[Rfam]
RNA sequence: CAAAAAGCACGCGGGAGCGCACGCCGAGUGCGCUGAGAGGACGGCUCGGGGCCGUCGACCGUACGAACCUGACCGGGUAAUGCCGGCGUAGGGAGAUGAAAUGACCGAGACC
Numbered sequence: 001c002a003a004a005a006a007g008c009a010c011g012c013g014g015g016a017g018c019g020c021a022c023g024c025c026g027a028g029u030g031c032g033c034u035g036a037g038a039g040g041a042c043g044g045c046u047c048g049g050g051g052c053c054g055u056c057g058a059c060c061g062u063a064c065g066a067a068c069c070u071g072a073c074c075g076g077g078u079a080a081u082g083c084c085g086g087c088g089u090a091g092g093g094a095g096a097u098g099a100a101a102u103g104a105c106c107g108a109g110a111c112c
Stems, first nucleotide, its partner, number of pairs: 008098002011062004017033005040056007068092004073086004
The family of this 112-nucleotide sequence from Mycobacterium haemophilum is "TPP riboswitch aptamer (THI element)". A search with the family's covariance model found it, with a score of 56 bits.